[Rfam]
RNA sequence: GCGCGCUGGCGGGGUCGGUGUAAUUCCGAACCGGCGGUGACGAGGUGUCCUAUGACGGCCUCGAAGUCCGCGACCCGAUCACAUCCAGUGACCGGUGGACCUGGUGAGAAUCCAGGACCGACGGUGAAAGUCCGGAUGGUAGUUGGCGCGC
Number, nucleotide and partner (000 for none) at each position: 001g000002c000003g149004c148005g147006c146007u145008g144009g143010c142011g000012g000013g000014g000015u000016c028017g027018g026019u000020g000021u000022a000023a000024u000025u000026c018027c017028g016029a000030a131031c130032c120033g119034g071035c070036g069037g068038u000039g000040a000041c000042g000043a000044g000045g000046u000047g000048u000049c000050c000051u000052a000053u000054g000055a000056c000057g000058g000059c000060c000061u000062c000063g000064a000065a000066g118067u117068c037069c036070g035071c034072g000073a000074c000075c095076c094077g000078a000079u000080c000081a000082c000083a000084u000085c000086c000087a000088g000089u000090g000091a000092c000093c000094g076095g075096u000097g000098g000099a000100c116101c115102u114103g113104g112105u000106g000107a000108g000109a000110a000111u000112c104113c103114a102115g101116g100117a067118c066119c033120g032121a000122c134123g133124g132125u000126g000127a000128a000129a000130g031131u030132c124133c123134g122135g000136a000137u000138g000139g000140u000141a000142g010143u009144u008145g007146g006147c005148g004149c003150g000151c000
RNA: FMN riboswitch aptamer (RFN element)